The record is a 73-nucleotide sequence from Alligator mississippiensis, which matches "Mammalian CPEB3 ribozyme" in Rfam. The match comes from Rfam's covariance-model search (43 bits). The source organism's lineage runs through Eukaryota, Bilateria, Teleostomi, Alligatorinae and Alligator.
RNA sequence: UCACAAGAACGAGGCCAUGGCAGAAGUCUCAGGGCACAGCCUGUCAGGUUCCAGUGAAUCUGUGAAUUCUGCU
Numbered sequence: 001u002c003a004c005a006a007g008a009a010c011g012a013g014g015c016c017a018u019g020g021c022a023g024a025a026g027u028c029u030c031a032g033g034g035c036a037c038a039g040c041c042u043g044u045c046a047g048g049u050u051c052c053a054g055u056g057a058a059u060c061u062g063u064g065a066a067u068u069c070u071g072c073u
Base pairs, nucleotide, nucleotide: 013041014040015039019073020072021071022070023069024068025067026037027036045062046061047060048059049058050057051056